Rfam assigns this 89-nucleotide RNA from Helcococcus kunzii to the family "NiCo-AnGGAG riboswitch aptamer".
It is one of the family's seed sequences.
Nico riboswitches are selective metalloregulatory riboswitches that recognice Ni2+ and Co2+ metals. NiCo-AnGGAG is a variant of Nico riboswitch, with a change in position 87, from G to A.
The base pairs follow the family's consensus structure, which is taken from published work.
Its Rfam clan is "NiCo_riboswitches".
Rfam links the family to the GO term metal ion binding.

RNA sequence: UAUCUGAGCAAGCGGUGGAAAUUUUCCAUGCAGCCCGGCUAUAGUAAAUAUAGCAGCAGAAGCGUAAUUAACAACGCACUGUGAGACAG
Numbered sequence: 001u002a003u004c005u006g007a008g009c010a011a012g013c014g015g016u017g018g019a020a021a022u023u024u025u026c027c028a029u030g031c032a033g034c035c036c037g038g039c040u041a042u043a044g045u046a047a048a049u050a051u052a053g054c055a056g057c058a059g060a061a062g063c064g065u066a067a068u069u070a071a072c073a074a075c076g077c078a079c080u081g082u083g084a085g086a087c088a089g
Base pairs, nucleotide, nucleotide: 004089005088006087012034013033014031015029016028017027018026019025038054039053040052041051042050043049056082057081058080059079062077063076064075065074